[Rfam]
The family of this 120-nucleotide RNA sequence from Camellia sinensis is "Small nucleolar RNA Z278". Its family is annotated with nucleolus and RNA processing in the Gene Ontology. From the family's description: snoZ278 is a C/D box small nucleolar RNA. Its methylation guide targets have not been reported. On this family, see Chen et al., Nucleic Acids Res 2003: "The high diversity of snoRNAs in plants: identification and comparative study of 120 snoRNA genes from Oryza sativa".
RNA sequence: GCCCGUGAAGAUAUUGUCCAUGUUUUUUUGAAGUGUUGUGGAGCAAAGCCCCUGUCUUUAUAGGGAGAACCUACUUGGUGAAGCUACAUUUCACAUGAUAUUAUUGGAUUCUACUGCGGC
Numbered sequence: 001g002c003c004c005g006u007g008a009a010g011a012u013a014u015u016g017u018c019c020a021u022g023u024u025u026u027u028u029u030g031a032a033g034u035g036u037u038g039u040g041g042a043g044c045a046a047a048g049c050c051c052c053u054g055u056c057u058u059u060a061u062a063g064g065g066a067g068a069a070c071c072u073a074c075u076u077g078g079u080g081a082a083g084c085u086a087c088a089u090u091u092c093a094c095a096u097g098a099u100a101u102u103a104u105u106g107g108a109u110u111c112u113a114c115u116g117c118g119g120c
Base pairs, nucleotide, nucleotide: 001120002119003118050065051064052063053062054061